[Rfam]
RNA sequence: UAACACUGGACAGUUAUGAAGAGGCAGGUGUUCAGGUAACCCCUGUUUCUUCUCCUGUUCCAGUGGUG
Numbered sequence: 001u002a003a004c005a006c007u008g009g010a011c012a013g014u015u016a017u018g019a020a021g022a023g024g025c026a027g028g029u030g031u032u033c034a035g036g037u038a039a040c041c042c043c044u045g046u047u048u049c050u051u052c053u054c055c056u057g058u059u060c061c062a063g064u065g066g067u068g
Base pairs, nucleotide, nucleotide: 004065005064006063007062008061009060010059011057012056013055018052019051020050021049022048023047024046025045026044027043028042030040031039032038
mir-5391 microRNA precursor family: a 68-nucleotide RNA from Anolis carolinensis. Gene Ontology terms of the family: miRNA-mediated post-transcriptional gene silencing and RISC complex. It is one of the family's seed sequences. The organism belongs to Anolis, within Eukaryota. Rfam 15.1 lists 12 matches to the family in 12 species.